[Rfam]
RNA sequence: GGGUGCCAGGGCUCGAGCCAUGGCAGGUUUCCAGGUUGGUCGGGCCGCCAGCC
Numbered sequence: 001g002g003g004u005g006c007c008a009g010g011g012c013u014c015g016a017g018c019c020a021u022g023g024c025a026g027g028u029u030u031c032c033a034g035g036u037u038g039g040u041c042g043g044g045c046c047g048c049c050a051g052c053c
Base pairs, nucleotide, nucleotide: 005024006023007022008021010019011018012017034053035052036051037050038049039048040047

nhaA-I RNA: a 53-nucleotide RNA sequence. Acidobacteria, Alphaproteobacteria, Betaproteobacteria and Gammaproteobacteria, Verrucomicrobia, cand. division NC10. Rfam classes the family as a riboswitch.